[Rfam]
RNA sequence: CACACGCGAGGCUUGGGAUCGACAGGGAGAAAUCCUGCCGCUUCCGCCCGGUGGCAGUCCGAAAGGACUGCUGUUUGCUUCGCGGGGGUUCAACCGGAAAAGGAGAAAAAGG
Numbered sequence: 001c002a003c004a005c006g007c008g009a010g011g012c013u014u015g016g017g018a019u020c021g022a023c024a025g026g027g028a029g030a031a032a033u034c035c036u037g038c039c040g041c042u043u044c045c046g047c048c049c050g051g052u053g054g055c056a057g058u059c060c061g062a063a064a065g066g067a068c069u070g071c072u073g074u075u076u077g078c079u080u081c082g083c084g085g086g087g088g089u090u091c092a093a094c095c096g097g098a099a100a101a102g103g104a105g106a107a108a109a110a111g112g
Base pairs, nucleotide, nucleotide: 001087003085005084006083007082008081009080010079011078015045016044023037024036026035053072054071055070056069057068058067059066060065

The family of this 112-nucleotide sequence from Agrobacterium albertimagni is "rpsB sRNA".
A reference for the family is Meyer et al. (2009), "Identification of candidate structured RNAs in the marine organism 'Candidatus Pelagibacter ubique'", BMC Genomics.
Rfam classes the family as a small RNA.
NCBI's taxonomy places the organism under Bacteria, Pseudomonadota, Alphaproteobacteria, Agrobacterium, Agrobacterium albertimagni.